[Rfam]
RNA sequence: CUAUGAAGAAUCACCCGCACACGCACGCCGCAAGCGCCGCCCGGAUGGCCUCCGGGAUGACCUCGCGUGCGCGUCGACCGGAACCCCACAUCUUCGCUGGGUAACCGGAGCGUGUCGCGCUG
Numbered sequence: 001c002u003a004u005g006a007a008g009a010a011u012c013a014c015c016c017g018c019a020c021a022c023g024c025a026c027g028c029c030g031c032a033a034g035c036g037c038c039g040c041c042c043g044g045a046u047g048g049c050c051u052c053c054g055g056g057a058u059g060a061c062c063u064c065g066c067g068u069g070c071g072c073g074u075c076g077a078c079c080g081g082a083a084c085c086c087c088a089c090a091u092c093u094u095c096g097c098u099g100g101g102u103a104a105c106c107g108g109a110g111c112g113u114g115u116c117g118c119g120c121u122g
Stems, first nucleotide, its partner, number of pairs: 034118003038112003041108002043079002046076004055070001057068003080106002085101004089096001
A member of the RNA family "Xanthomonadaceae sRNA Xoo5" from Xanthomonas sp. XNM01, 122 nucleotides long. By type it is a small RNA.